Shown here is a 94-nucleotide RNA from Zeavirus zeae, a member of the family "Tombusvirus internal replication element (IRE)". Pairs were carried over by alignment from the consensus structure, which was predicted with PFOLD. From the family's description: This family represents the Tombusvirus internal replication element (IRE) which is located within the region coding for p92 polymerase. The element is essential for viral replication and is thought to be required at an early stage of this process such as template recruitment and/or replicase complex assembly. The literature on the family includes a 2005 paper in J Virol by Monkewich et al., "The p92 Polymerase Coding Region Contains an Internal RNA Element Required at an Early Step in Tombusvirus Genome Replication". It is one of the family's seed sequences.
[Rfam]
RNA sequence: GGUAGUGGAAGAGGUCGGAACUGCCCACCGCCUUGGUUAUGACGGGUUUCUGUCAUACUAUAGCGGCGCGAAGUUGCGUACUUAUUCGAAUGCC
Numbered sequence: 001g002g003u004a005g006u007g008g009a010a011g012a013g014g015u016c017g018g019a020a021c022u023g024c025c026c027a028c029c030g031c032c033u034u035g036g037u038u039a040u041g042a043c044g045g046g047u048u049u050c051u052g053u054c055a056u057a058c059u060a061u062a063g064c065g066g067c068g069c070g071a072a073g074u075u076g077c078g079u080a081c082u083u084a085u086u087c088g089a090a091u092g093c094c
Stems, first nucleotide, its partner, number of pairs: 001094004006089001008087001017077001019075003026068001028066003038057008